[Rfam]
RNA sequence: GUGGGCUAUGGGGACAUGAGGCCCAUCACCGUGGGUGGUAAGAUUGUGGGCUCUCUGUGUGCCAUUGCUGGGGUCCUCACUAUUGCCCUGCCUGUGCCCGUCAUUGUCUCCAAC
Numbered sequence: 001g002u003g004g005g006c007u008a009u010g011g012g013g014a015c016a017u018g019a020g021g022c023c024c025a026u027c028a029c030c031g032u033g034g035g036u037g038g039u040a041a042g043a044u045u046g047u048g049g050g051c052u053c054u055c056u057g058u059g060u061g062c063c064a065u066u067g068c069u070g071g072g073g074u075c076c077u078c079a080c081u082a083u084u085g086c087c088c089u090g091c092c093u094g095u096g097c098c099c100g101u102c103a104u105u106g107u108c109u110c111c112a113a114c
Stems, first nucleotide, its partner, number of pairs: 001114002004111002008107004013102003018097001021095002037077002040074001049063003
RNA: Potassium channel RNA editing signal
Organism: Marmota monax